[Rfam]
RNA sequence: ACCGCGUACUUACCUACUAUAUAGUAGAAGGGAUACAUGUAUUUCGGCUACUGUAUAGUAGGUAAGUGCGCGGUUU
Numbered sequence: 001a002c003c004g005c006g007u008a009c010u011u012a013c014c015u016a017c018u019a020u021a022u023a024g025u026a027g028a029a030g031g032g033a034u035a036c037a038u039g040u041a042u043u044u045c046g047g048c049u050a051c052u053g054u055a056u057a058g059u060a061g062g063u064a065a066g067u068g069c070g071c072g073g074u075u076u
Stems, first nucleotide, its partner, number of pairs: 001074015017058011030045002033042003
RNA: mir-7563 microRNA precursor family